[Rfam]
RNA: Bacillaceae-1 RNA
RNA sequence: GUGGGAGGUUCAAAGGCUAGGAUCGCCCCAUCCUGGGGCAACGCCUUUGUGACCAACGUCCUGUUGG
Numbered sequence: 001g002u003g004g005g006a007g008g009u010u011c012a013a014a015g016g017c018u019a020g021g022a023u024c025g026c027c028c029c030a031u032c033c034u035g036g037g038g039c040a041a042c043g044c045c046u047u048u049g050u051g052a053c054c055a056a057c058g059u060c061c062u063g064u065u066g067g
Stems, first nucleotide, its partner, number of pairs: 011049007025039005053067005